[Rfam]
RNA sequence: UGACACAGAAGCAAUUCUGUGUGACUGCAGUGCAGAAGUCAGCAGAAGGCAUAGUAAGUGGCCUCUCGCUACUGAAGGCC
Numbered sequence: 001u002g003a004c005a006c007a008g009a010a011g012c013a014a015u016u017c018u019g020u021g022u023g024a025c026u027g028c029a030g031u032g033c034a035g036a037a038g039u040c041a042g043c044a045g046a047a048g049g050c051a052u053a054g055u056a057a058g059u060g061g062c063c064u065c066u067c068g069c070u071a072c073u074g075a076a077g078g079c080c
Stems, first nucleotide, its partner, number of pairs: 001024001003022008039046002048080003057073006
Rfam assigns this 80-nucleotide RNA from Endozoicomonas numazuensis to the family "Group II catalytic intron D1-D4-1". A search with the family's covariance model found it, with a score of 58 bits. Its family is annotated with Group II intron splicing in the Gene Ontology. Rfam describes the family as follows. Group II introns are found in rRNA, tRNA and mRNA of organelles in fungi, plants and protists, and also in mRNA in bacteria. The source organism's lineage runs through Bacteria, Gammaproteobacteria, Oceanospirillales, Endozoicomonadaceae and Endozoicomonas. On this family, see Bonen and Vogel, Trends Genet 2001: "The ins and outs of group II introns".